A member of the RNA family "TPP riboswitch aptamer (THI element)" from Halarsenatibacter silvermanii, 107 nucleotides long.
Its family is annotated with thiamine pyrophosphate binding in the Gene Ontology.
RNA sequence: AAUUAAAUACCGGGGAGCCUCGCUCGGAGGCUGAGAGGAUGCACUGCAUCGACCCGCAUAACCUGAUCCUGGUAAUGCAGGCGCAGGGAAUUAUUAAAUCCUCCUCC
Number, nucleotide and partner (000 for none) at each position: 001a000002a000003u000004u000005a000006a095007a094008u093009a092010c000011c056012g055013g054014g053015g000016a000017g031018c030019c029020u028021c027022g000023c000024u000025c000026g000027g021028a020029g019030g018031c017032u000033g000034a000035g000036a000037g000038g050039a049040u048041g047042c046043a000044c000045u000046g042047c041048a040049u039050c038051g000052a000053c014054c013055c012056g011057c000058a000059u000060a000061a000062c087063c086064u085065g084066a000067u000068c081069c080070u079071g078072g000073u000074a000075a000076u000077g000078c071079a070080g069081g068082c000083g000084c065085a064086g063087g062088g000089a000090a000091u000092u009093a008094u007095u006096a000097a000098a000099u000100c000101c000102u000103c000104c000105u000106c000107c000
It scores 76 bits against the family's covariance model.